The record is a 138-nucleotide RNA from Tachuris rubrigastra, which matches "Small nucleolar RNA SNORA64/SNORA10 family" in Rfam.
RNA sequence: CCUCUCCCAAUCUGCGCGAUUGCACUUGUGUGCCGUAGUGUAAUUGUCGUAACUGGAGAGAGAGAGAAACCCGAGUUUUGUGUGUUCACCAGAGAGACCUCGGCCGUGGUCUCCCUGUCCUUGCAAAAUCCUACACUU
Numbered sequence: 001c002c003u004c005u006c007c008c009a010a011u012c013u014g015c016g017c018g019a020u021u022g023c024a025c026u027u028g029u030g031u032g033c034c035g036u037a038g039u040g041u042a043a044u045u046g047u048c049g050u051a052a053c054u055g056g057a058g059a060g061a062g063a064g065a066g067a068a069a070c071c072c073g074a075g076u077u078u079u080g081u082g083u084g085u086u087c088a089c090c091a092g093a094g095a096g097a098c099c100u101c102g103g104c105c106g107u108g109g110u111c112u113c114c115c116u117g118u119c120c121u122u123g124c125a126a127a128a129u130c131c132u133a134c135a136c137u138u
Stems, first nucleotide, its partner, number of pairs: 002066005008060001011057004018045008076128005082122001084120001091116002095112005
Dot-bracket structure: .(((((.(..((((...((((((((............))))))))........))))..).))))).........(((((.(.(......((..(((((........)))))..))...).).)))))..........

Taxonomically the source falls in Tachuris (Eukaryota, Opisthokonta, Dinosauria, Passeriformes). For this family Rfam cites "Nucleolar localization signals of box H/ACA small nucleolar RNAs" (Narayanan et al., EMBO J, 1999). The base pairs follow the family's consensus structure, which is taken from published work. It scores 36 bits against the family's covariance model.